[Rfam]
RNA: Small nucleolar RNA U109
Organism: Diceros bicornis
RNA sequence: UUGCAUGUGAAAUGUCUCCUCCUCAUUCCUUUAGGAGCAGGGAUAUAUCCAUAACAUGCCACAGUAAAAGAGUUUUCAGGGCUGCCAAUCUUAUAGUAGAGGUUGAGUAGUAAUAGAUUUCUCUUGCAUAA
Numbered sequence: 001u002u003g004c005a006u007g008u009g010a011a012a013u014g015u016c017u018c019c020u021c022c023u024c025a026u027u028c029c030u031u032u033a034g035g036a037g038c039a040g041g042g043a044u045a046u047a048u049c050c051a052u053a054a055c056a057u058g059c060c061a062c063a064g065u066a067a068a069a070g071a072g073u074u075u076u077c078a079g080g081g082c083u084g085c086c087a088a089u090c091u092u093a094u095a096g097u098a099g100a101g102g103u104u105g106a107g108u109a110g111u112a113a114u115a116g117a118u119u120u121c122u123c124u125u126g127c128a129u130a131a
Stems, first nucleotide, its partner, number of pairs: 003059006015041003019037004069124004081111002085107001086105007